[Rfam]
RNA sequence: CCCGGCCAGGGUCGCGCCUGGCUGUAGCCCGAGCGGGGGGAGUGUGUCUGGACUGUGCGGGCGAGGCCGAGGGCCCGACUCUUUACCAAUGCCGAUCCUGCGCCGACUUCAAGGUGGCGGUCGCCAUUGCUCACCGGGCGGAAGCUUGGUGGACUUGGGUGAUGAUGCGAGGCGGAACGCCACAGGCUGGAAACAGAGCAAGGAAAAGUCUCCGCCGUCAUCAGUGAAGCGAUCACGUGGGUGAAUUGGGGGGCGGAUCACCCGGAGCCCUGCUAGGAUGGGACAGGCACGCGC
Numbered sequence: 001c002c003c004g005g006c007c008a009g010g011g012u013c014g015c016g017c018c019u020g021g022c023u024g025u026a027g028c029c030c031g032a033g034c035g036g037g038g039g040g041a042g043u044g045u046g047u048c049u050g051g052a053c054u055g056u057g058c059g060g061g062c063g064a065g066g067c068c069g070a071g072g073g074c075c076c077g078a079c080u081c082u083u084u085a086c087c088a089a090u091g092c093c094g095a096u097c098c099u100g101c102g103c104c105g106a107c108u109u110c111a112a113g114g115u116g117g118c119g120g121u122c123g124c125c126a127u128u129g130c131u132c133a134c135c136g137g138g139c140g141g142a143a144g145c146u147u148g149g150u151g152g153a154c155u156u157g158g159g160u161g162a163u164g165a166u167g168c169g170a171g172g173c174g175g176a177a178c179g180c181c182a183c184a185g186g187c188u189g190g191a192a193a194c195a196g197a198g199c200a201a202g203g204a205a206a207a208g209u210c211u212c213c214g215c216c217g218u219c220a221u222c223a224g225u226g227a228a229g230c231g232a233u234c235a236c237g238u239g240g241g242u243g244a245a246u247u248g249g250g251g252g253g254c255g256g257a258u259c260a261c262c263c264g265g266a267g268c269c270c271u272g273c274u275a276g277g278a279u280g281g282g283a284c285a286g287g288c289a290c291g292c293g294c
Stems, first nucleotide, its partner, number of pairs: 001040003004023007028037003042292009053281004058276001061273003065269003068264002071259002074256002081253003086249005092243001097241006104231002107229005113222009122161004129154001131152009162166001169212005180203002187196003
This 294-nucleotide RNA sequence from Guillardia theta belongs to the Rfam family "Metazoan signal recognition particle RNA". The match comes from Rfam's covariance-model search (133 bits). The signal recognition particle (SRP) is a universally conserved ribonucleoprotein. It is involved in the co-translational targeting of proteins to membranes. The eukaryotic SRP consists of a 300-nucleotide 7S RNA and six proteins: SRPs 72, 68, 54, 19, 14, and 9.